Shown here is a 100-nucleotide sequence from Acipenser ruthenus, a member of the family "Small nucleolar RNA SNORD16". For this family Rfam cites "A novel small nucleolar RNA (U16) is encoded inside a ribosomal protein intron and originates by processing of the pre-mRNA" (Fragapane et al., EMBO J, 1993). It is annotated as a C/D-box small nucleolar RNA. It scores 102 bits against the family's covariance model. Lineage of the source: Eukaryota > Chordata > Vertebrata > Acipenseridae > Acipenser. The family's consensus secondary structure was predicted with PFOLD.
RNA sequence: UGCAAUGAUGGUGUAAUUUGCGUCUUACCAUGUGUUCAGUGACAGUUGCCUGCUGUCCUUAUGCUGGCACAUAGGCUUGACGAUCACGAAGGUCUGAGCA
Numbered sequence: 001u002g003c004a005a006u007g008a009u010g011g012u013g014u015a016a017u018u019u020g021c022g023u024c025u026u027a028c029c030a031u032g033u034g035u036u037c038a039g040u041g042a043c044a045g046u047u048g049c050c051u052g053c054u055g056u057c058c059u060u061a062u063g064c065u066g067g068c069a070c071a072u073a074g075g076c077u078u079g080a081c082g083a084u085c086a087c088g089a090a091g092g093u094c095u096g097a098g099c100a
Base pairs, nucleotide, nucleotide: 001100002099003098021082022081023080024079030072031071032070033069034068039064040063041057042056043055044054045053